[Rfam]
RNA sequence: GUUCCCGAGGGGUGCUGCAACAGCCGCUGCAAAGGCUGCCAGGCUCGGCGAAUCACUUCAUACAGUUGCCAACGACACCCGCCUCUA
Numbered sequence: 001g002u003u004c005c006c007g008a009g010g011g012g013u014g015c016u017g018c019a020a021c022a023g024c025c026g027c028u029g030c031a032a033a034g035g036c037u038g039c040c041a042g043g044c045u046c047g048g049c050g051a052a053u054c055a056c057u058u059c060a061u062a063c064a065g066u067u068g069c070c071a072a073c074g075a076c077a078c079c080c081g082c083c084u085c086u087a
Stems, first nucleotide, its partner, number of pairs: 002051002005048004021038005